[Rfam]
RNA sequence: CACCGCCCGUCGCUACCAUCGGUGGACGGCCUAGCGAGGACCUCGGCAUCCUCGCGCCGGGAAGACGCCCGAACUCCGGUCGCUCGGAGAUAGUAGAAGUCGUAACAAGGUUUCCGUAGGUGAACUGCGGAAGGAUCAUUA
Numbered sequence: 001c002a003c004c005g006c007c008c009g010u011c012g013c014u015a016c017c018a019u020c021g022g023u024g025g026a027c028g029g030c031c032u033a034g035c036g037a038g039g040a041c042c043u044c045g046g047c048a049u050c051c052u053c054g055c056g057c058c059g060g061g062a063a064g065a066c067g068c069c070c071g072a073a074c075u076c077c078g079g080u081c082g083c084u085c086g087g088a089g090a091u092a093g094u095a096g097a098a099g100u101c102g103u104a105a106c107a108a109g110g111u112u113u114c115c116g117u118a119g120g121u122g123a124a125c126u127g128c129g130g131a132a133g134g135a136u137c138a139u140u141a
Base pairs, nucleotide, nucleotide: 003109005106008102009101011099013096014095015094016093018091019090020089023086024085025084027082028081029080030079031078033075034074038070039069041067043065044064047061049059050056111133112132113131114130115129116128117127118126119125
Dot-bracket structure: ..(.(..((.(.((((.(((..(((.(((((.((...((.(.((..(.((.....)..).)..)).).))...))..))))).)))..))).))))..).))...)..).(((((((((.....)))))))))........
Rfam assigns this 141-nucleotide part of an RNA from Tritonia nilsodhneri to the family "Eukaryotic small subunit ribosomal RNA". The source organism's lineage runs through Eukaryota, Eumetazoa, Nudipleura, Nudibranchia and Tritonia. The base pairs follow the family's consensus structure, which is taken from published work. A reference for the family is Cannone et al. (2002), "The comparative RNA web (CRW) site: an online database of comparative sequence and structure information for ribosomal, intron, and other RNAs", BMC Bioinformatics. Rfam links the family to the GO terms structural constituent of ribosome and ribosome.